[Rfam]
RNA sequence: UCACCGUUGGGCUCGGAUUCGCUUGGUGCAGGUCGGGAAGCAAUUGGCUGACACGACCACUUGACCUUUUCCUUGUUGGUUUGUGAGCAGUAAUUGGAUCCCGACUGCAUCAACUGAAUCGGGGCCUUGCUGGUGAAA
Numbered sequence: 001u002c003a004c005c006g007u008u009g010g011g012c013u014c015g016g017a018u019u020c021g022c023u024u025g026g027u028g029c030a031g032g033u034c035g036g037g038a039a040g041c042a043a044u045u046g047g048c049u050g051a052c053a054c055g056a057c058c059a060c061u062u063g064a065c066c067u068u069u070u071c072c073u074u075g076u077u078g079g080u081u082u083g084u085g086a087g088c089a090g091u092a093a094u095u096g097g098a099u100c101c102c103g104a105c106u107g108c109a110u111c112a113a114c115u116g117a118a119u120c121g122g123g124g125c126c127u128u129g130c131u132g133g134u135g136a137a138a
Stems, first nucleotide, its partner, number of pairs: 013123002017119004023113007031106002034103005041096005